[Rfam]
RNA: Group II catalytic intron D1-D4-3
Organism: Clostridium sulfidigenes
RNA sequence: UCCAUGGUGACGUGGAACCUGAAGAAAGUCGGCGGCGAAACUCUGGUCUGACGAACAGAAACUACAUAUAAGGCAUAUGUCUGUGGGUAAGGUUGCUAUACAAACCAAAGCCCGAAACUAUUCGAAACAGACAGUGUAAAUGUAGCAGAUAUAUGGAGUAAAAGAUUACGGU
Numbered sequence: 001u002c003c004a005u006g007g008u009g010a011c012g013u014g015g016a017a018c019c020u021g022a023a024g025a026a027a028g029u030c031g032g033c034g035g036c037g038a039a040a041c042u043c044u045g046g047u048c049u050g051a052c053g054a055a056c057a058g059a060a061a062c063u064a065c066a067u068a069u070a071a072g073g074c075a076u077a078u079g080u081c082u083g084u085g086g087g088u089a090a091g092g093u094u095g096c097u098a099u100a101c102a103a104a105c106c107a108a109a110g111c112c113c114g115a116a117a118c119u120a121u122u123c124g125a126a127a128c129a130g131a132c133a134g135u136g137u138a139a140a141u142g143u144a145g146c147a148g149a150u151a152u153a154u155g156g157a158g159u160a161a162a163a164g165a166u167u168a169c170g171g172u
Stems, first nucleotide, its partner, number of pairs: 001016006028172004036164001040159006046150005062145006073137003079132006085113004091106004